[Rfam]
RNA sequence: GGUUUUAACCCAAGUUAACCAAGGUUAGCACUGAAUUUCGACGUUUCGGUAAAACGAUUGUGUUGAGAUUUUUGGAACUGCUUCUUCGGGGUAUCCGGGGAGGCGUA
Numbered sequence: 001g002g003u004u005u006u007a008a009c010c011c012a013a014g015u016u017a018a019c020c021a022a023g024g025u026u027a028g029c030a031c032u033g034a035a036u037u038u039c040g041a042c043g044u045u046u047c048g049g050u051a052a053a054a055c056g057a058u059u060g061u062g063u064u065g066a067g068a069u070u071u072u073u074g075g076a077a078c079u080g081c082u083u084c085u086u087c088g089g090g091g092u093a094u095c096c097g098g099g100g101a102g103g104c105g106u107a
Stems, first nucleotide, its partner, number of pairs: 007037002009033001014029002017026003039065004046057002082105001084103004090096002
Rfam assigns this 107-nucleotide sequence from Caenorhabditis briggsae to the family "SL2 RNA". Clan: SL clan. About the family: This family represents SL2 RNA. SL2 RNA is involved in trans splicing in lower eukaryotes. Trans-splicing is a form of RNA processing. The acquisition of a spliced leader from a SL RNA is a intra-molecular reaction which precisely joins exons derived from separately transcribed RNAs.